[Rfam]
RNA sequence: GUAUCCUGUACUGAGCUGCCCCGAGCUGGGAGUAGUGAAGGCCUCGGGGCAGCUCAGUACAGGAUCC
Number, nucleotide and partner (000 for none) at each position: 001g000002u000003a000004u000005c000006c000007u000008g060009u059010a058011c057012u056013g055014a054015g053016c052017u051018g050019c000020c048021c047022c046023g045024a044025g043026c000027u000028g000029g000030g000031a000032g000033u000034a000035g000036u000037g000038a000039a000040g000041g000042c000043c025044u024045c023046g022047g021048g020049g000050c018051a017052g016053c015054u014055c013056a012057g011058u010059a009060c008061a000062g000063g000064a000065u000066c000067c000
A member of the RNA family "mir-486 microRNA precursor family" from Nannospalax galili, 67 nucleotides long.
Gene Ontology terms of the family: miRNA-mediated post-transcriptional gene silencing and RISC complex.
Taxonomically the source falls in Nannospalax (Eukaryota, Deuterostomia, Gnathostomata, Mammalia).
It scores 78 bits against the family's covariance model.
The family's consensus secondary structure was predicted with RNAalifold.